Rfam assigns this 79-nucleotide RNA sequence from Dialister succinatiphilus to the family "Group II catalytic intron D1-D4-1". Group II introns are found in rRNA, tRNA and mRNA of organelles in fungi, plants and protists, and also in mRNA in bacteria. The organism belongs to Dialister succinatiphilus, within Bacteria.
[Rfam]
RNA sequence: UGGACCGGGCGGAGACGGUUGGAAAAGAUUUGUCAUGAGAAGUCAGCAGAGGUCAUAGUACCGCAAAAGCGGAAAGGAC
Numbered sequence: 001u002g003g004a005c006c007g008g009g010c011g012g013a014g015a016c017g018g019u020u021g022g023a024a025a026a027g028a029u030u031u032g033u034c035a036u037g038a039g040a041a042g043u044c045a046g047c048a049g050a051g052g053u054c055a056u057a058g059u060a061c062c063g064c065a066a067a068a069g070c071g072g073a074a075a076g077g078a079c
Stems, first nucleotide, its partner, number of pairs: 001027001005022004010017002043050002052079003061072004